[Rfam]
RNA sequence: GGAAUAUAAGAAUCCGUCUCUUAACUAAAAAAGUUAAGAACCAAUUCUUAAAACUCUUAUUUAAGAGUCGGUUCCUAACUUUUUUUUAAUUAAAAGUUAAGAGACAGGUUCUUAUAUUCU
Numbered sequence: 001g002g003a004a005u006a007u008a009a010g011a012a013u014c015c016g017u018c019u020c021u022u023a024a025c026u027a028a029a030a031a032a033g034u035u036a037a038g039a040a041c042c043a044a045u046u047c048u049u050a051a052a053a054c055u056c057u058u059a060u061u062u063a064a065g066a067g068u069c070g071g072u073u074c075c076u077a078a079c080u081u082u083u084u085u086u087u088a089a090u091u092a093a094a095a096g097u098u099a100a101g102a103g104a105c106a107g108g109u110u111c112u113u114a115u116a117u118u119c120u
Stems, first nucleotide, its partner, number of pairs: 001120014016105010026088007034078003038074003

The record is a 120-nucleotide RNA sequence from Brassica napus, which matches "MIR9563 microRNA precursor family" in Rfam. The base pairs follow the family's consensus structure, which was predicted with RNAalifold.